[Rfam]
Description
This 102-nucleotide sequence from Metabacillus harenarius belongs to the Rfam family "Purine riboswitch aptamer". Rfam links the family to the GO term purine nucleobase biosynthetic process. The source organism's lineage runs through Bacteria, Bacillati, Bacillota, Caryophanales and Metabacillus.
RNA sequence: AUCAAAUAAGUCGAAAUACGUCGUAUAAUGUUGGGGAUAUGGCCCAAAAGUUUCUACCAAGCUACCGUAAAUGGCUUGACUACGAGGUGUUCAUUGCUAGUU
Numbered sequence: 001a002u003c004a005a006a007u008a009a010g011u012c013g014a015a016a017u018a019c020g021u022c023g024u025a026u027a028a029u030g031u032u033g034g035g036g037a038u039a040u041g042g043c044c045c046a047a048a049a050g051u052u053u054c055u056a057c058c059a060a061g062c063u064a065c066c067g068u069a070a071a072u073g074g075c076u077u078g079a080c081u082a083c084g085a086g087g088u089g090u091u092c093a094u095u096g097c098u099a100g101u102u
Stems, first nucleotide, its partner, number of pairs: 018088002021085005029049001031047005058078007